RNA sequence: CCAGACGGUCGGGCGAUCGCUGUUGCCUUUCAGGUGAUGGAGGAAAGUCCGGGCUCCACGGGAGAACGGUGCCGGCUAACGGCCGGCGAGGGUGACCUCAGGGAAAGUGCCACAGAAAACAAACCACCUCCCGGGCCUGCUCGCAGGCUGGAGGCAAGGGUGAAACGGUGCGGUAAGAGCGCACCGCGCUUCCGGUAACGGCGGCGGCAGGGCAAACCCCACCGGGAGCAAGACCGAAUAGGGACGGUAGGCAGCCUGACUGCCAAAGGUUCUCCCGCCUUCCGUCCGGGUUGGUCGCGCGAGGCGUGUUGCAAGACACGUCCCAGAGGAAUGAUCGUCACGGUCUCUUCGGAGAACGGACAGAACCCGGCUUACAGACCGUCUGGCACA
Number, nucleotide and partner (000 for none) at each position: 001c386002c385003a384004g383005a382006c381007g380008g379009u378010c377011g375012g339013g338014c337015g336016a335017u334018c333019g000020c040021u039022g038023u037024u036025g035026c034027c033028u032029u000030u000031c000032a028033g027034g026035u025036g024037a023038u022039g021040g020041a000042g000043g000044a000045a373046a372047g371048u000049c370050c369051g368052g367053g366054c228055u227056c226057c225058a000059c000060g000061g000062g276063a000064g274065a273066a000067c224068g223069g222070u221071g220072c086073c085074g084075g083076c082077u000078a000079a000080c000081g000082g076083c075084c074085g073086g072087c101088g099089a098090g097091g096092g000093u000094g000095a000096c091097c090098u089099c088100a000101g087102g219103g218104a000105a000106a000107g217108u216109g213110c212111c211112a000113c000114a000115g000116a000117a000118a000119a000120c000121a000122a000123a000124c159125c158126a000127c154128c153129u152130c151131c150132c000133g148134g000135g000136c000137c000138u000139g000140c000141u000142c000143g000144c000145a000146g000147g000148c133149u000150g131151g130152a129153g128154g127155c000156a000157a000158g125159g124160g000161u000162g000163a000164a000165a000166c000167g185168g184169u183170g182171c181172g180173g000174u000175a000176a000177g000178a000179g000180c172181g171182c170183a169184c168185c167186g208187c206188g205189c204190u203191u000192c201193c200194g199195g000196u000197a000198a000199c194200g193201g192202c000203g190204g189205c188206g187207g000208c186209a000210g000211g111212g110213c109214a000215a000216a108217c107218c103219c102220c071221a070222c069223c068224g067225g057226g056227a055228g054229c000230a000231a000232g296233a295234c294235c293236g000237a000238a000239u000240a000241g000242g287243g286244a285245c284246g283247g282248u000249a000250g000251g000252c000253a000254g000255c000256c000257u000258g000259a000260c000261u000262g000263c000264c000265a000266a000267a281268g280269g279270u000271u277272c000273u065274c064275c000276c062277g271278c000279c269280u268281u267282c247283c246284g245285u244286c243287c242288g000289g000290g000291u000292u000293g235294g234295u233296c232297g000298c000299g000300c000301g000302a000303g322304g321305c320306g319307u318308g317309u316310u315311g000312c000313a000314a000315g310316a309317c308318a307319c306320g305321u304322c303323c000324c000325a000326g000327a000328g000329g000330a000331a000332u000333g018334a017335u016336c015337g014338u013339c012340a000341c000342g000343g000344u000345c000346u000347c000348u000349u000350c000351g000352g000353a000354g000355a000356a000357c000358g000359g000360a000361c000362a000363g000364a000365a000366c053367c052368c051369g050370g049371c047372u046373u045374a000375c011376a000377g010378a009379c008380c007381g006382u005383c004384u003385g002386g001387c000388a000389c000390a000

The record is a 390-nucleotide RNA sequence from Acetobacter aceti, which matches "Bacterial RNase P class A" in Rfam.